[Rfam]
skipping-rope RNA: an 84-nucleotide sequence from Megasphaera micronuciformis.

RNA sequence: AGAAUCUGAGGACGGAACGGGCAGCCGUCGCCAGAAGGUCAUCGACCUGAAUAGGAGAUGCGGGAAUGUCACCCCGCCAAUUCU
Dot-bracket structure: (((((.((..(((((....[[[[.))))).(....((((.....))))......)....(((((..]]]]..))))))))))))
Rfam's curators put it in the seed alignment.